The record is a 154-nucleotide RNA from Amborella trichopoda, which matches "MIR8565 microRNA precursor family" in Rfam. The organism belongs to Amborella, within Eukaryota. Its family is annotated with RISC complex and miRNA-mediated post-transcriptional gene silencing in the Gene Ontology. The family's consensus secondary structure was predicted with RNAalifold.
[Rfam]
RNA sequence: CUCACACCCAUGUGUGUAGAACAACAAAUGAUCACCAUUAAAUUUGGCACAGAUCUCUAGAAAAGUUAUCACAUGGGUGCGAGACUUAACUUUUUUAGAGAUCUGUGCCAAAUUUAUUGGUGAUCCUUUGAGGUCCUACAUACAUGGAUAUGGA
Dot-bracket structure: .(((.(.((((((.(((((.((..((((.(((.((((.((((((((((((((((((((((((((((((((.((....)).))....)))))))))))))))))))))))))))))).)))).))).))))..)).))))).)))))).).))).
Numbered sequence: 001c002u003c004a005c006a007c008c009c010a011u012g013u014g015u016g017u018a019g020a021a022c023a024a025c026a027a028a029u030g031a032u033c034a035c036c037a038u039u040a041a042a043u044u045u046g047g048c049a050c051a052g053a054u055c056u057c058u059a060g061a062a063a064a065g066u067u068a069u070c071a072c073a074u075g076g077g078u079g080c081g082a083g084a085c086u087u088a089a090c091u092u093u094u095u096u097a098g099a100g101a102u103c104u105g106u107g108c109c110a111a112a113u114u115u116a117u118u119g120g121u122g123a124u125c126c127u128u129u130g131a132g133g134u135c136c137u138a139c140a141u142a143c144a145u146g147g148a149u150a151u152g153g154a
Stems, first nucleotide, its partner, number of pairs: 002153003006149001008147006015140005021134002025130004030125003034121004039116030069082002072079002